[Rfam]
RNA sequence: UGUGUGAUUUAGGUAGUUUCCUGUUGUUGGGCUGCUCUUUGUUCACAGUGACAAGAAACUGCCUGUAUUACUCC
Dot-bracket structure: ...(((((.((((((((((..((((((((.(............).))))))))..)))))))))).)))))...

The record is a 74-nucleotide RNA from Callorhinchus milii, which matches "mir-196 microRNA precursor family" in Rfam. Taxonomically the source falls in Callorhinchus (Eukaryota, Vertebrata, Chondrichthyes, Holocephali). The match comes from Rfam's covariance-model search (69 bits).